[Rfam]
RNA sequence: UGAGGCCCCUCACCCACUGUCGAAGAUCCCCGGUGUGCGAGGUGGCGGCAGGGAUC
Number, nucleotide and partner (000 for none) at each position: 001u000002g000003a000004g000005g000006c044007c000008c042009c041010u040011c039012a000013c037014c000015c035016a034017c033018u032019g000020u000021c000022g000023a000024a000025g056026a055027u054028c053029c052030c051031c000032g018033g017034u016035g015036u000037g013038c000039g011040a010041g009042g008043u000044g006045g000046c000047g000048g000049c000050a000051g030052g029053g028054a027055u026056c025
Antizyme RNA frameshifting stimulation element: a 56-nucleotide sequence from Myotis davidii. The organism belongs to Myotis, within Eukaryota. It scores 56 bits against the family's covariance model. On this family, see Ivanov et al., J Mol Biol 2004: "Identification of a new antizyme mRNA +1 frameshifting stimulatory pseudoknot in a subset of diverse invertebrates and its apparent absence in intermediate species". The family's consensus secondary structure is taken from published work. Gene Ontology term of the family: translational frameshifting.